[Rfam]
RNA sequence: UUGUUUUCAUCAACAGUGCUCGAUAAAACGU
Numbered sequence: 001u002u003g004u005u006u007u008c009a010u011c012a013a014c015a016g017u018g019c020u021c022g023a024u025a026a027a028a029c030g031u
Stems, first nucleotide, its partner, number of pairs: 002030006009024003013020001014018001

The family of this 31-nucleotide sequence from Branchiostoma lanceolatum is "Iron response element II". The base pairs follow the family's consensus structure, which is taken from published work. Lineage of the source: Eukaryota > Opisthokonta > Bilateria > Deuterostomia > Branchiostoma. Its family is annotated with response to iron ion in the Gene Ontology. Rfam's curators write: IRE, TFRC, SLC40A1, SDHB, SLC11A2, CDC42BPA, ACO2, ALAS2_H.SAPIENS, CDC14A, EPAS1, ALAS2, qoxD, Hao1, NDUFS1, transferrin, Aconitate. A search with the family's covariance model found it, with a score of 30 bits.